[Rfam]
TPP riboswitch aptamer (THI element): a 178-nucleotide RNA sequence from Faucicola atlantae.
RNA sequence: CAACAUGACUCGGGGUGCUUGCCAGUUUUGGUCAGACAGCUUUUGGCGAUUCGAUGGUGUUUGCGUGAUAGCGUUGAGCGUGUGUGCCAUCGUAUUGGGUUUAAAAGCAGCAAGCUGAGAGAUACCCGUCGCACCUGAUGCGGUUCGUACCGUCGUAGGGAAGUCUGGCGCGUUGUGA
Number, nucleotide and partner (000 for none) at each position: 001c000002a000003a000004c000005a000006u000007g165008a164009c163010u162011c128012g127013g126014g125015g000016u122017g115018c114019u113020u112021g111022c000023c000024a000025g000026u000027u000028u000029u000030g000031g000032u000033c000034a000035g000036a000037c000038a000039g000040c000041u000042u000043u000044u000045g000046g000047c000048g000049a000050u000051u000052c000053g000054a000055u000056g000057g000058u000059g000060u000061u000062u000063g000064c000065g000066u000067g000068a000069u000070a000071g000072c000073g000074u000075u000076g000077a000078g000079c000080g000081u000082g000083u000084g000085u000086g000087c000088c000089a000090u000091c000092g000093u000094a000095u000096u000097g000098g000099g000100u000101u000102u000103a000104a000105a000106a000107g000108c000109a000110g000111c021112a020113a019114g018115c017116u000117g000118a000119g000120a000121g000122a016123u000124a000125c014126c013127c012128g011129u000130c000131g000132c000133a000134c159135c158136u157137g156138a000139u000140g153141c152142g151143g150144u000145u000146c000147g000148u000149a000150c143151c142152g141153u140154c000155g000156u137157a136158g135159g134160g000161a000162a010163g009164u008165c007166u000167g000168g000169c000170g000171c000172g000173u000174u000175g000176u000177g000178a000

Taxonomically the source falls in Faucicola (Bacteria, Pseudomonadota, Moraxellales, Moraxellaceae). Pairs were carried over by alignment from the consensus structure, which is taken from published work. Gene Ontology term of the family: thiamine pyrophosphate binding.